RNA: Plant signal recognition particle RNA
RNA sequence: GCCGAGCUGUGUAAUGCUAGCUUAUGACCCAAGUGGGGGCAACUAAAGUGAUGGAACAAGUGCUCUGGCCUGCUAGGUUGGGCUUGCAAGGAAAAAUUGUUGGCCUGCCCACUCCAAGUUGAGAGUUGGGCCUGGUAGUCUGGGCGAAGGCCCAAGGCCCCUUGGCUCCUAUAAUGGAGGGCAAUGCGUGAGGCUGGCUUAACAGAGCAGCGAUCACUUCCUGCUCCCAACAGUGGAGGGAACACAGGCUGCUGUUCUUCAGGCCCAAUAUGGCCUGGUAGGCCUAGCAAUCUUGGACCAUCAUUUUU
Dot-bracket structure: (((((((((........))))))....(((....))))))....((((((((((..((.((..(..((.(((((((((((((((((..(.(((.(.....(((((((.((.(((((.((((.((((.(((((.((..((((((((....)))).))))..)).))))).......(((((......(((....(((......)))....)))....))))).)))).))))..)))))))....))))))).).)))).))))))).....)))))))))).))..)..))..))..)))))))))).